[Rfam]
RNA sequence: GUUCAUCUUCAGGGCAGGGUGUAAUUCCCGACCGGUGGUAAAAGUCCACGAGCUUCUUUCGAGAGGUUGAUGCGGUGUAAUUCCGCAACCGACUGUAAAGUCAGGAUGGGAGAAGAUGUGA
Dot-bracket structure: ...(((((((......(((.......))).[[((((((.....[[))))..(((..........)))...(((((.......)))))]])).(((....]]))).......)))))))...
Numbered sequence: 001g002u003u004c005a006u007c008u009u010c011a012g013g014g015c016a017g018g019g020u021g022u023a024a025u026u027c028c029c030g031a032c033c034g035g036u037g038g039u040a041a042a043a044g045u046c047c048a049c050g051a052g053c054u055u056c057u058u059u060c061g062a063g064a065g066g067u068u069g070a071u072g073c074g075g076u077g078u079a080a081u082u083c084c085g086c087a088a089c090c091g092a093c094u095g096u097a098a099a100g101u102c103a104g105g106a107u108g109g110g111a112g113a114a115g116a117u118g119u120g121a
Stems, first nucleotide, its partner, number of pairs: 004118007017029003031101002033091002035049004044089002052067003071087005093104003
Shown here is a 121-nucleotide RNA from Brochothrix thermosphacta, a member of the family "FMN riboswitch aptamer (RFN element)".
The RFN element is a highly conserved domain that is found frequently in the 5'-untranslated regions of prokaryotic mRNAs that encode for flavin mononucleotide (FMN) biosynthesis and transport proteins.
It scores 120 bits against the family's covariance model.